[Rfam]
RNA: Purine riboswitch aptamer
Organism: Pullulanibacillus camelliae
RNA sequence: AGAUUGACAUUUGAUAGACCUCAUAUAAUGUUGGGAAUAUGGCCCAAAAGUUUCUACCCAGUGACCGUAAAUCACCGGACUAUGAGGGAAAGCACUGAGCAU
Numbered sequence: 001a002g003a004u005u006g007a008c009a010u011u012u013g014a015u016a017g018a019c020c021u022c023a024u025a026u027a028a029u030g031u032u033g034g035g036a037a038u039a040u041g042g043c044c045c046a047a048a049a050g051u052u053u054c055u056a057c058c059c060a061g062u063g064a065c066c067g068u069a070a071a072u073c074a075c076c077g078g079a080c081u082a083u084g085a086g087g088g089a090a091a092g093c094a095c096u097g098a099g100c101a102u
Stems, first nucleotide, its partner, number of pairs: 019087007029049001031047005058078002061075004